[Rfam]
RNA sequence: UUCUUAUCGAGAGAGAUGGAGGGAUAUGGCCCUAUGAAGUCUCGGCAGCAGGUUUACGUAAACACUGUGCCAAAUCCAGCAAACCUAACAAGGUUUGGAAGAUAAGAA
Numbered sequence: 001u002u003c004u005u006a007u008c009g010a011g012a013g014a015g016a017u018g019g020a021g022g023g024a025u026a027u028g029g030c031c032c033u034a035u036g037a038a039g040u041c042u043c044g045g046c047a048g049c050a051g052g053u054u055u056a057c058g059u060a061a062a063c064a065c066u067g068u069g070c071c072a073a074a075u076c077c078a079g080c081a082a083a084c085c086u087a088a089c090a091a092g093g094u095u096u097g098g099a100a101g102a103u104a105a106g107a108a
Base pairs, nucleotide, nucleotide: 001108002107003106004105005104006103007102008101013043014042015041016040017039021032022031023030027078028077029076044071045070046069047068049067050066051063053061054060075100080097081096082095083094084093085092
RNA: SAM riboswitch aptamer (S box leader)
Organism: Fictibacillus macauensis